The record is a 118-nucleotide sequence from Treponema denticola, which matches "TD-1 RNA" in Rfam.

[Rfam]
RNA sequence: GUUUAUCUUCGAGUUUGCCGUAAACGGCAAACAUCGUUUAUCGUAUGCGGUUUGUAAACAAACCGCUUGAAAAAACUUUUUUCGGAAACUAAUGUUUCCUGCAAAAAGUUUUUAGAGA
Numbered sequence: 001g002u003u004u005a006u007c008u009u010c011g012a013g014u015u016u017g018c019c020g021u022a023a024a025c026g027g028c029a030a031a032c033a034u035c036g037u038u039u040a041u042c043g044u045a046u047g048c049g050g051u052u053u054g055u056a057a058a059c060a061a062a063c064c065g066c067u068u069g070a071a072a073a074a075a076c077u078u079u080u081u082u083c084g085g086a087a088a089c090u091a092a093u094g095u096u097u098c099c100u101g102c103a104a105a106a107a108g109u110u111u112u113u114a115g116a117g118a
Base pairs, nucleotide, nucleotide: 011035012034013032014031015030016029017028018027019026020025047066048065049064050063051062052061053060054059071113072112073111074110075109076108077107078106079105080104081103084099085098086097087096088095089094
The literature on the family includes a 2007 paper in Nucleic Acids Res by Weinberg et al., "Identification of 22 candidate structured RNAs in bacteria using the CMfinder comparative genomics pipeline".
The organism belongs to Treponema denticola, within Bacteria.
Rfam's curators put it in the seed alignment.